The family of this 594-nucleotide part of an RNA from Diacronema lutheri is "Eukaryotic small subunit ribosomal RNA". Rfam links the family to the GO terms structural constituent of ribosome and ribosome. Pairs were carried over by alignment from the consensus structure, which is taken from published work.
RNA sequence: AGUCAUAUGCUUGUCUCAAAGAUUAAGCCAUGCAUGUCUAAGUAUAAGCACCUUAUACUGUGAAACUGCGAAUGGCUCAUUAAAUCAGUUAUGGUUUAUUUGAUGGUACCUUACUACUUGGAUACCCGUAGUAAUUCUAGAGCUAAUACAUGCAGGCAGUCCCGACGUUUGGAGGGAUGUAUUUAUUAGAUAAGGAACCAACCCGGGCGCAAGCCCGGUUGCGUGCUGAGUCAUACUAACUGUUCGAAUCGCAUGGCAUCUCGCCGGCGAUGGUUCAUUCAAAUUUCUGCCCUAUCAGCUUUCGAUGGUAGGAUAGAGGCCUACCAUGGCGUUAACGGGUAACGGGGAAUUAGGGUUCGAUUCCGGAGAGGGAGCCUGAGAGACGGCUACCACAUCCAAGGAAGGCAGCAGGCGCGCAAAUUACCCAAUCCUGACACAGGGAGGUAGUGACAAGAAAUAACAAUACAGGGCUCUUCGAGUCUUGUAAUUGGAAUGAGUACAAUUUAAAUCCCUUAACGAGGAUCCAUUGGAGGGCAAGUCUGGUGCCAGCAGCCGCGGUAAUUCCAGCUCCAAUAGCGUAUAUUAAAGUUGUUG
Numbered sequence: 001a002g003u004c005a006u007a008u009g010c011u012u013g014u015c016u017c018a019a020a021g022a023u024u025a026a027g028c029c030a031u032g033c034a035u036g037u038c039u040a041a042g043u044a045u046a047a048g049c050a051c052c053u054u055a056u057a058c059u060g061u062g063a064a065a066c067u068g069c070g071a072a073u074g075g076c077u078c079a080u081u082a083a084a085u086c087a088g089u090u091a092u093g094g095u096u097u098a099u100u101u102g103a104u105g106g107u108a109c110c111u112u113a114c115u116a117c118u119u120g121g122a123u124a125c126c127c128g129u130a131g132u133a134a135u136u137c138u139a140g141a142g143c144u145a146a147u148a149c150a151u152g153c154a155g156g157c158a159g160u161c162c163c164g165a166c167g168u169u170u171g172g173a174g175g176g177a178u179g180u181a182u183u184u185a186u187u188a189g190a191u192a193a194g195g196a197a198c199c200a201a202c203c204c205g206g207g208c209g210c211a212a213g214c215c216c217g218g219u220u221g222c223g224u225g226c227u228g229a230g231u232c233a234u235a236c237u238a239a240c241u242g243u244u245c246g247a248a249u250c251g252c253a254u255g256g257c258a259u260c261u262c263g264c265c266g267g268c269g270a271u272g273g274u275u276c277a278u279u280c281a282a283a284u285u286u287c288u289g290c291c292c293u294a295u296c297a298g299c300u301u302u303c304g305a306u307g308g309u310a311g312g313a314u315a316g317a318g319g320c321c322u323a324c325c326a327u328g329g330c331g332u333u334a335a336c337g338g339g340u341a342a343c344g345g346g347g348a349a350u351u352a353g354g355g356u357u358c359g360a361u362u363c364c365g366g367a368g369a370g371g372g373a374g375c376c377u378g379a380g381a382g383a384c385g386g387c388u389a390c391c392a393c394a395u396c397c398a399a400g401g402a403a404g405g406c407a408g409c410a411g412g413c414g415c416g417c418a419a420a421u422u423a424c425c426c427a428a429u430c431c432u433g434a435c436a437c438a439g440g441g442a443g444g445u446a447g448u449g450a451c452a453a454g455a456a457a458u459a460a461c462a463a464u465a466c467a468g469g470g471c472u473c474u475u476c477g478a479g480u481c482u483u484g485u486a487a488u489u490g491g492a493a494u495g496a497g498u499a500c501a502a503u504u505u506a507a508a509u510c511c512c513u514u515a516a517c518g519a520g521g522a523u524c525c526a527u528u529g530g531a532g533g534g535c536a537a538g539u540c541u542g543g544u545g546c547c548a549g550c551a552g553c554c555g556c557g558g559u560a561a562u563u564c565c566a567g568c569u570c571c572a573a574u575a576g577c578g579u580a581u582a583u584u585a586a587a588g589u590u591g592u593u594g
Stems, first nucleotide, its partner, number of pairs: 001584003005581007014455003020448001021415001027413003031410003036069002041067003048061002076368003086289003091284002095282002101277003117152001119150002126142001129139003159178005166171001183239003187235002197227001199225002206215003249270004254266004291339003298330003305327008343365004347358004370391002373388003393404001395402002421446001423445003429441005461490003464486010497517002499514001501513001527573006540567004549556002